Source information: The family of this 100-nucleotide sequence from Rhodococcus triatomae is "mraW RNA". The family has 45 seed sequences and 851 matches in Rfam 15.1. The organism belongs to Rhodococcus, within Bacteria. The base pairs follow the family's consensus structure, which is taken from published work.
RNA sequence: CCCUGCGAGUGUCACGAGGCCUCUGCCCGAACGGACCCUGACGCACUUCCCCAGCGCCAGGUUCCCUCGGACAGGGACCUCGGGACAUUCGCCCCGUCAC
Numbered sequence: 001c002c003c004u005g006c007g008a009g010u011g012u013c014a015c016g017a018g019g020c021c022u023c024u025g026c027c028c029g030a031a032c033g034g035a036c037c038c039u040g041a042c043g044c045a046c047u048u049c050c051c052c053a054g055c056g057c058c059a060g061g062u063u064c065c066c067u068c069g070g071a072c073a074g075g076g077a078c079c080u081c082g083g084g085a086c087a088u089u090c091g092c093c094c095c096g097u098c099a100c
Stems, first nucleotide, its partner, number of pairs: 010087004015082002018079002021076005027070004033065003037061004042056003